[Rfam]
SAM riboswitch aptamer (S box leader): a 92-nucleotide RNA from Amycolatopsis sp. FDAARGOS 1241. Rfam 15.1 lists 9,625 matches to the family in 4,158 species. Lineage of the source: Bacteria > Bacillati > Actinomycetota > Pseudonocardiaceae > Amycolatopsis.
RNA sequence: CGUCCAUCCCGAGCGACUGAGAGACCUGGCUCGACGAAGUCGCAGCAACCACCCUCCGGCAGGGCAGGUGCUACAGCCAGGACCGAUGGAGG
Number, nucleotide and partner (000 for none) at each position: 001c092002g000003u090004c089005c088006a087007u086008c085009c000010c000011g000012a000013g043014c042015g041016a040017c039018u000019g000020a000021g032022a031023g030024a000025c000026c080027u079028g078029g077030c023031u022032c021033g000034a000035c000036g000037a000038a000039g017040u016041c015042g014043c013044a072045g071046c070047a069048a000049c068050c067051a000052c064053c063054c062055u000056c000057c000058g000059g000060c000061a000062g054063g053064g052065c000066a000067g050068g049069u047070g046071c045072u044073a000074c000075a000076g084077c029078c028079a027080g026081g000082a000083c000084c076085g008086a007087u006088g005089g004090a003091g000092g001